[Rfam]
A member of the RNA family "Purine riboswitch aptamer" from Erysipelothrix larvae, 100 nucleotides long. About the family: Riboswitches are metabolite binding domains within certain messenger RNAs that serve as precision sensors for their corresponding targets. Allosteric rearrangement of mRNA structure is mediated by ligand binding, and this results in modulation of gene expression. A class of riboswitches that selectively recognises guanine and becomes saturated at concentrations as low as 5 nM. In Bacillus subtilis, this mRNA motif is located on at least five separate transcriptional units that together encode 17 genes that are mostly involved in purine transport and purine nucleotide biosynthesis. It scores 59 bits against the family's covariance model.
RNA sequence: UAAUAUGCGAAAGUUUCACGUCGUAUAGUCUUGGAAAGACGGUCCAAGCGUUUCUACCCGAUUCCAAUCUAAUCGGACUACGGUGUGAAGUAUUAAGGAU
Numbered sequence: 001u002a003a004u005a006u007g008c009g010a011a012a013g014u015u016u017c018a019c020g021u022c023g024u025a026u027a028g029u030c031u032u033g034g035a036a037a038g039a040c041g042g043u044c045c046a047a048g049c050g051u052u053u054c055u056a057c058c059c060g061a062u063u064c065c066a067a068u069c070u071a072a073u074c075g076g077a078c079u080a081c082g083g084u085g086u087g088a089a090g091u092a093u094u095a096a097g098g099a100u
Stems, first nucleotide, its partner, number of pairs: 018086008030048006058076006
Dot-bracket structure: .................((((((((....((((((.......)))))).........((((((.......))))))..))))))))..............